[Rfam]
RNA sequence: UAUUUAAAUCAAAGCGAACCGAAGACAGUUAGUGGCUCUGGGCCUUAAUUUCUAACCGAGGGAGAUAAUAACACUAUAAGCCUUAUAGUGUCUGCAUAAUCUCUGUGUCUUUUGGGGACAUGGAGUUUUUUAUUGCUUAU
Numbered sequence: 001u002a003u004u005u006a007a008a009u010c011a012a013a014g015c016g017a018a019c020c021g022a023a024g025a026c027a028g029u030u031a032g033u034g035g036c037u038c039u040g041g042g043c044c045u046u047a048a049u050u051u052c053u054a055a056c057c058g059a060g061g062g063a064g065a066u067a068a069u070a071a072c073a074c075u076a077u078a079a080g081c082c083u084u085a086u087a088g089u090g091u092c093u094g095c096a097u098a099a100u101c102u103c104u105g106u107g108u109c110u111u112u113u114g115g116g117g118a119c120a121u122g123g124a125g126u127u128u129u130u131u132a133u134u135g136c137u138u139a140u
Stems, first nucleotide, its partner, number of pairs: 028056005034044003101125010
The record is a 140-nucleotide RNA sequence from Aerococcus sp. Group 1, which matches "Ribosomal protein L10 leader" in Rfam. It is annotated as a cis-regulatory leader.